Rfam assigns this 95-nucleotide RNA from Papaver nudicaule to the family "Small nucleolar RNA Z157/R69/R10". The family's RNA type in Rfam is C/D-box small nucleolar RNA. A search with the family's covariance model found it, with a score of 63 bits. The family's consensus secondary structure was predicted with PFOLD. Rfam 15.1 lists 836 matches to the family in 232 species.
Nucleotides: 095
Stems, first nucleotide, its partner, number of pairs: 001095002005091001007089002035067001037065002042060001044058004
Number, partner (000 for none) and nucleotide at each position: 001095g002094a003000g004000c005091u006000a007089g008088c009000g010000g011000u012000g013000a014000u015000g016000a017000c018000u019000u020000u021000a022000u023000u024000a025000u026000g027000g028000a029000c030000u031000a032000g033000a034000g035067u036000u037065u038064c039000u040000g041000a042060u043000c044058g045057g046056g047055g048000c049000u050000c051000u052000u053000c054000a055047c056046c057045c058044u059000a060042a061000u062000c063000u064038g065037a066000c067035g068000a069000c070000a071000a072000a073000c074000c075000c076000u077000u078000g079000g080000c081000u082000g083000u084000c085000u086000g087000a088008g089007c090000a091005a092000u093000a094002u095001u